[Rfam]
RNA sequence: AGUGAAGCGACGGGAGAAUCCGGCAAGACCGGUGCCGAAGGAGCAACCGCCCCGGUAAACUCUCAGGCACAAGGACCGCCGCUGAACA
Number, nucleotide and partner (000 for none) at each position: 001a000002g000003u000004g000005a000006a083007g082008c081009g080010a000011c078012g077013g076014g000015a000016g000017a000018a000019u000020c032021c031022g030023g029024c000025a000026a000027g000028a000029c023030c022031g021032g020033u000034g068035c067036c066037g064038a063039a000040g000041g062042a061043g060044c000045a000046a000047c055048c054049g000050c000051c000052c000053c000054g048055g047056u000057a000058a000059a000060c043061u042062c041063u038064c037065a000066g036067g035068c034069a000070c000071a000072a000073g000074g000075a000076c013077c012078g011079c000080c009081g008082c007083u006084g000085a000086a000087c000088a000